Shown here is a 136-nucleotide sequence from Lachnospiraceae bacterium MD308, a member of the family "Ribosomal protein L10 leader". The family's RNA type in Rfam is cis-regulatory leader. NCBI's taxonomy places the organism under Bacteria, Bacillati, Clostridia, Lachnospirales, Lachnospiraceae.
[Rfam]
RNA sequence: AUUUUUAUCUGGUAACUGCCGAAGACAGUAGGUGCUGCAAAGCGUAAGGGUUAAAACGCCUACCGAGGAAGAGUUAAAUUCAGAUAUGGAUUUAUACCUCUGCGUCUUUUUGGCGCAGAGGUUUUUGGCAGCAUAC
Dot-bracket structure: ...........................(((((((((....)))..............)))))).................................((((((((((.....))))))))))...............